This 96-nucleotide sequence belongs to the Rfam family "wcaG RNA". Pairs were carried over by alignment from the consensus structure, which is taken from published work. Rfam's curators put it in the seed alignment.
RNA sequence: UCGGGUUUCUUGCUUCCUAAAAGUAAGUGGUGCGGAUGGGAUAACUCCCGCCUGGUUUCUAUGUUCCAGUCAAAAAUGUAGUGGUGGAGUCAAUUA
Number, nucleotide and partner (000 for none) at each position: 001u000002c000003g000004g000005g000006u000007u000008u000009c027010u026011u025012g024013c023014u022015u021016c000017c000018u000019a000020a000021a015022a014023g013024u012025a011026a010027g009028u000029g000030g000031u000032g000033c000034g000035g000036a000037u050038g049039g048040g047041a046042u000043a000044a000045c000046u041047c040048c039049c038050g037051c000052c069053u068054g067055g066056u000057u000058u000059c081060u080061a079062u078063g077064u076065u000066c055067c054068a053069g052070u000071c000072a000073a000074a000075a000076a064077u063078g062079u061080a060081g059082u000083g000084g000085u000086g000087g000088a000089g000090u000091c000092a000093a000094u000095u000096a000